[Rfam]
RNA: MIR398 microRNA precursor family
RNA sequence: AUGUAUUCAAUAGGGGCAACUUGAGAUCACAUGUUACCAUGUUUCUUUUUUAAUUUGAUGAUUUGUAUCUCAACAUGUGUUCUCAGGUCGCCCCUGUCGAAUUAUU
Numbered sequence: 001a002u003g004u005a006u007u008c009a010a011u012a013g014g015g016g017c018a019a020c021u022u023g024a025g026a027u028c029a030c031a032u033g034u035u036a037c038c039a040u041g042u043u044u045c046u047u048u049u050u051u052a053a054u055u056u057g058a059u060g061a062u063u064u065g066u067a068u069c070u071c072a073a074c075a076u077g078u079g080u081u082c083u084c085a086g087g088u089c090g091c092c093c094c095u096g097u098c099g100a101a102u103u104a105u106u
Stems, first nucleotide, its partner, number of pairs: 007100002011096004016091002019088001023084004028079005
Dot-bracket structure: ......((..((((.((.(...((((.(((((..........................................))))).))))...).)).))))..))......